[Rfam]
RNA sequence: CAGUUGAUUGGUAGCUGUAAAGCCAGGGGCGGUAGCAUG
Numbered sequence: 001c002a003g004u005u006g007a008u009u010g011g012u013a014g015c016u017g018u019a020a021a022g023c024c025a026g027g028g029g030c031g032g033u034a035g036c037a038u039g
Stems, first nucleotide, its partner, number of pairs: 008026005
Rfam assigns this 39-nucleotide sequence from Jejuibacter calystegiae to the family "JUMPstart RNA". The family's RNA type in Rfam is cis-regulatory element. The family's consensus secondary structure is taken from published work. The organism belongs to Jejuibacter, within Bacteria. The family has 128 seed sequences and 288 matches in Rfam 15.1.